[Rfam]
RNA sequence: ACGACCUUACUUGAACAGGAUCUGUUCUAUAGGAGCGUACAUCUGUAUCCUUUAGCACAAAGGAGACAGGAACCCAAACCUGGUUGAUGAAUCAGGACCGUGCGAUCCGAGCGUGAUUAACGGUUUGCUAGGUCCUUGGAUCUAGGUUUGACUGUAGAGGAUCGUACCCAGCCAGCCUUGCUGAAUGGGUUGGUCGCAUGGUUGUCUGACAGGCU
Dot-bracket structure: ((..(((.....((((((...))))))...)))...))....((((.((((((.....)))))).)))).........((((..............(((((((((((...(((......((((((.((((((((....)))))))..).)))))).......))).((((..((((...))))..))))..))))))))))).......))))..
Plant small nucleolar RNA U3: a 215-nucleotide sequence from Jatropha curcas. It is annotated as a C/D-box small nucleolar RNA. From the family's description: Small nucleolar RNAs (snoRNAs) are involved in the processing and modification of rRNA in the nucleolus. There are two main classes of snoRNAs: the box C/D class, and the box H/ACA class. U3 snoRNA is a member of the box C/D class. Indeed, the box C/D element is a subset of the six short sequence elements found in all U3 snoRNAs, namely boxes A, A', B, C, C', and D. The U3 snoRNA secondary structure is characterised by a small 5' domain (with boxes A and A'), and a larger 3' domain (with boxes B, C, C', and D), the two domains being linked by a single-stranded hinge. Lineage of the source: Eukaryota > Spermatophyta > Mesangiospermae > Pentapetalae > Jatropha. Rfam links the family to the GO terms nucleolus and RNA processing.